[Rfam]
RNA sequence: AAGGAAGCUCCAUACUUCUUUACAUUCCAUAUCCAAUUAAUCACACUAUGGGAAGUACAGAAGCAUGGAACCUGACC
Numbered sequence: 001a002a003g004g005a006a007g008c009u010c011c012a013u014a015c016u017u018c019u020u021u022a023c024a025u026u027c028c029a030u031a032u033c034c035a036a037u038u039a040a041u042c043a044c045a046c047u048a049u050g051g052g053a054a055g056u057a058c059a060g061a062a063g064c065a066u067g068g069a070a071c072c073u074g075a076c077c
Base pairs, nucleotide, nucleotide: 007071009069010068011067012066013065015063016062017061018060019059021057022056023055025053027051028050029049030048031047
Rfam assigns this 77-nucleotide sequence from Nezara viridula to the family "mir-1 microRNA precursor family". Pairs were carried over by alignment from the consensus structure, which was predicted with RNAalifold. The family has 137 seed sequences and 4,474 matches in Rfam 15.1. Rfam's curators write: This family represents the microRNA (miRNA) mir-1 family. miRNAs are transcribed as ~70nt precursors (modelled here) and subsequently processed by the Dicer enzyme to give a ~22nt product. In this case the mature sequence comes from the 3' arm of the precursor. The extents of the hairpin precursors are not generally known and are estimated based on hairpin prediction. The products are thought to have regulatory roles through complementarity to mRNA. The involvement of Dicer in miRNA processing suggests a relationship with the phenomenon of RNA interference. miRNAs are numbered based on the sequence of the mature RNA. This family also contains the mir-206 from human, which appears to be related to mir-1. A reference for the family is Lee and Ambros (2001), "An extensive class of small RNAs in Caenorhabditis elegans", Science.